[Rfam]
RNA sequence: UAAGGUCUAUAUGACUGACGGAAGUGGAAUUGACCACAGGGAGUAUAGAUGACUAAUGCCGACCGUCUGGGCGAAGCUG
Numbered sequence: 001u002a003a004g005g006u007c008u009a010u011a012u013g014a015c016u017g018a019c020g021g022a023a024g025u026g027g028a029a030u031u032g033a034c035c036a037c038a039g040g041g042a043g044u045a046u047a048g049a050u051g052a053c054u055a056a057u058g059c060c061g062a063c064c065g066u067c068u069g070g071g072c073g074a075a076g077c078u079g
Base pairs, nucleotide, nucleotide: 005050006049007048008047009046010045011044012043015040016039017067018066019065020064021063024037025036026035027034057073058072059071060070
Overview
The family of this 79-nucleotide sequence from Lachnospiraceae bacterium YSD2013 is "ZMP/ZTP riboswitch aptamer (pfl RNA motif)". The source organism's lineage runs through Bacteria, Bacillati, Bacillota, Lachnospirales and Lachnospiraceae. The family's consensus secondary structure is taken from published work. It scores 57 bits against the family's covariance model.